[Rfam]
RNA: M-box riboswitch aptamer (ykoK leader)
RNA sequence: GCAGUAUCUCGUUAGGCGAGGCUCCUGUACAAACAUAGGUUACUGAUCUGACGACGUCGAGAGACGCCCAAGAUUAGGACAGAUUAUAUCGAGUCAAGGUGUAAUCCCAGGUAACUUCCUCCUGCCAGCCAGGGGAUACGUUGUACAGUGCUAAAACCGAGACAUGGAGAUAGCGU
Numbered sequence: 001g002c003a004g005u006a007u008c009u010c011g012u013u014a015g016g017c018g019a020g021g022c023u024c025c026u027g028u029a030c031a032a033a034c035a036u037a038g039g040u041u042a043c044u045g046a047u048c049u050g051a052c053g054a055c056g057u058c059g060a061g062a063g064a065c066g067c068c069c070a071a072g073a074u075u076a077g078g079a080c081a082g083a084u085u086a087u088a089u090c091g092a093g094u095c096a097a098g099g100u101g102u103a104a105u106c107c108c109a110g111g112u113a114a115c116u117u118c119c120u121c122c123u124g125c126c127a128g129c130c131a132g133g134g135g136a137u138a139c140g141u142u143g144u145a146c147a148g149u150g151c152u153a154a155a156a157c158c159g160a161g162a163c164a165u166g167g168a169g170a171u172a173g174c175g176u
Base pairs, nucleotide, nucleotide: 005172006171007170008169009168010167011163012162013097015158016157020152021151022150025148026147027146028145029144030143031142032141039115040114041113042112043111045075046074047073048072049071055066056065057064058063082106083105084104085103088100089099090098117136118135119134120133121132